[Rfam]
RNA sequence: UGCCAGUCAGAAAUGAGCUUAUUCAUCAAAGUGCGGUUCGGUCCAGUCAGUCUGUCACUUGACGCAGAAGCUAGUCUCUGACCGAA
Numbered sequence: 001u002g003c004c005a006g007u008c009a010g011a012a013a014u015g016a017g018c019u020u021a022u023u024c025a026u027c028a029a030a031g032u033g034c035g036g037u038u039c040g041g042u043c044c045a046g047u048c049a050g051u052c053u054g055u056c057a058c059u060u061g062a063c064g065c066a067g068a069a070g071c072u073a074g075u076c077u078c079u080g081a082c083c084g085a086a
Stems, first nucleotide, its partner, number of pairs: 004084001006082006013075002016072005022066001024064001026062004033055004
Shown here is an 86-nucleotide sequence from Callithrix jacchus, a member of the family "mir-590 microRNA precursor family". The source organism's lineage runs through Eukaryota, Opisthokonta, Eumetazoa, Theria and Callithrix. A reference for the family is Murchison et al. (2008), "Conservation of small RNA pathways in platypus", Genome Res. Pairs were carried over by alignment from the consensus structure, which was predicted with RNAalifold.